[Rfam]
RNA sequence: CCCAGUGGUUGGUCAGUAUCCAGCGCUAAUCCGUGCCUGUGAUAGUGUUACAUUGCUGGGAGAUAAAGACAAUGCACCCAAUGCUGCUGUCACACUGUUACUGUUCUGGUGACGUGUAGCACAUGCAACUAGGCAUUGUUGUACUUCCUCGAGAGUGCGCCGAACAUCUGCCAUGCAUGUUUUGUCGCUAGUCUGGAAGCACACAGA
Numbered sequence: 001c002c003c004a005g006u007g008g009u010u011g012g013u014c015a016g017u018a019u020c021c022a023g024c025g026c027u028a029a030u031c032c033g034u035g036c037c038u039g040u041g042a043u044a045g046u047g048u049u050a051c052a053u054u055g056c057u058g059g060g061a062g063a064u065a066a067a068g069a070c071a072a073u074g075c076a077c078c079c080a081a082u083g084c085u086g087c088u089g090u091c092a093c094a095c096u097g098u099u100a101c102u103g104u105u106c107u108g109g110u111g112a113c114g115u116g117u118a119g120c121a122c123a124u125g126c127a128a129c130u131a132g133g134c135a136u137u138g139u140u141g142u143a144c145u146u147c148c149u150c151g152a153g154a155g156u157g158c159g160c161c162g163a164a165c166a167u168c169u170g171c172c173a174u175g176c177a178u179g180u181u182u183u184g185u186c187g188c189u190a191g192u193c194u195g196g197a198a199g200c201a202c203a204c205a206g207a
Stems, first nucleotide, its partner, number of pairs: 001060009012051002016046001017044004021039003025036002069139007083129001085127003088121003092117002095114001099111004141202002144199005157188003161184002163181005
RNA: Small nucleolar RNA SNORA74